Background
Archaeal large subunit ribosomal RNA: a 454-nucleotide part of an RNA from candidate division MSBL1 archaeon SCGC-AAA382A20.
[Rfam]
RNA sequence: CCUCCCAAAAAUGAUCGCAGUCAUGCCUGGCACGAAGCCGCUGUAGGUGUAGAGCACUGAUUGGUGGGUACGGAAGGAGACUUCCGGCUCGCCUGUCAAACUCCGAAGCCCGCAGCACUGCAGACUGCUGGAGUUAGGGCGCGGGGGGUAAGCUCCCGCUCCGAAAGAGGAACAACUCAGACUGAGGUUAAGGCCCCUAAAUGCCGGCUAAGUGUUAAGCUCAAAGGGAGUCUUUGUCCCGAGACAGCGGGGAGGUAGGCUUAGAAGCAGCCGUCCUUUAAACAGCGCGUAACAGCGAACCCGUUGAGGGUGAAGGCCCCGAAAAUGGACGGGACUAAGCCGGCUGCCGAUACCUUAGGACAGGUGAAGUAGAGUAGCCUGAUUCUGUAGGGAGGCAUCCGGCGAGGAUAGAAGUACGGUCGAAAGAUCGUAUGAACCUCGUUGGAAAGAGAAU
Numbered sequence: 001c002c003u004c005c006c007a008a009a010a011a012u013g014a015u016c017g018c019a020g021u022c023a024u025g026c027c028u029g030g031c032a033c034g035a036a037g038c039c040g041c042u043g044u045a046g047g048u049g050u051a052g053a054g055c056a057c058u059g060a061u062u063g064g065u066g067g068g069u070a071c072g073g074a075a076g077g078a079g080a081c082u083u084c085c086g087g088c089u090c091g092c093c094u095g096u097c098a099a100a101c102u103c104c105g106a107a108g109c110c111c112g113c114a115g116c117a118c119u120g121c122a123g124a125c126u127g128c129u130g131g132a133g134u135u136a137g138g139g140c141g142c143g144g145g146g147g148g149u150a151a152g153c154u155c156c157c158g159c160u161c162c163g164a165a166a167g168a169g170g171a172a173c174a175a176c177u178c179a180g181a182c183u184g185a186g187g188u189u190a191a192g193g194c195c196c197c198u199a200a201a202u203g204c205c206g207g208c209u210a211a212g213u214g215u216u217a218a219g220c221u222c223a224a225a226g227g228g229a230g231u232c233u234u235u236g237u238c239c240c241g242a243g244a245c246a247g248c249g250g251g252g253a254g255g256u257a258g259g260c261u262u263a264g265a266a267g268c269a270g271c272c273g274u275c276c277u278u279u280a281a282a283c284a285g286c287g288c289g290u291a292a293c294a295g296c297g298a299a300c301c302c303g304u305u306g307a308g309g310g311u312g313a314a315g316g317c318c319c320c321g322a323a324a325a326u327g328g329a330c331g332g333g334a335c336u337a338a339g340c341c342g343g344c345u346g347c348c349g350a351u352a353c354c355u356u357a358g359g360a361c362a363g364g365u366g367a368a369g370u371a372g373a374g375u376a377g378c379c380u381g382a383u384u385c386u387g388u389a390g391g392g393a394g395g396c397a398u399c400c401g402g403c404g405a406g407g408a409u410a411g412a413a414g415u416a417c418g419g420u421c422g423a424a425a426g427a428u429c430g431u432a433u434g435a436a437c438c439u440c441g442u443u444g445g446a447a448a449g450a451g452a453a454u
Base pairs, nucleotide, nucleotide: 001395002394003393004392005391006390011024012023013022014021015020026133027131028130029129030128031127032126036119037118040116041115042114043113044112046110047109052104053102054101059097060096061095063093064092065091066090067089068088071086072085073084074083075082076081137162138161139160141159142158143157144156145155146154167178168177169176182358183357184356185355186354187353188352192348193347194346201345203344204343205342206341207340208339226320227319228318230317231316232315233314234313235312236311237310238309239308247304248303249302250301251300253277254276255275258272259271260270278282287296288295359385360384361381362380363379364378365377396449398446399445400444401443402442403441404440405439406438407437414433415432416431417430418429419428420427421426

Gene Ontology terms of the family: structural constituent of ribosome and ribosome.